[Rfam]
The record is a 65-nucleotide RNA sequence from Yersinia ruckeri, which matches "DnaX ribosomal frameshifting element" in Rfam. By type it is a frameshift element. NCBI's taxonomy places the organism under Bacteria, Pseudomonadati, Pseudomonadota, Gammaproteobacteria, Yersinia. About the family: This family represents a ribosomal frameshifting element found in the mRNA of the dnaX gene in E. coli. The dnaX gene has two encoded products tau and gamma which are produced in a 1:1 ratio. The gamma protein is synthesised due to programmed frameshifting and is shorter than tau.
RNA sequence: AGCAAGGGACAUCCAGCCCAAAAAAGAAUGAGCCGGCAGCGCCUGACAAAGCGCGGCCGGCAAUC
Numbered sequence: 001a002g003c004a005a006g007g008g009a010c011a012u013c014c015a016g017c018c019c020a021a022a023a024a025a026g027a028a029u030g031a032g033c034c035g036g037c038a039g040c041g042c043c044u045g046a047c048a049a050a051g052c053g054c055g056g057c058c059g060g061c062a063a064u065c
Stems, first nucleotide, its partner, number of pairs: 032061006039054002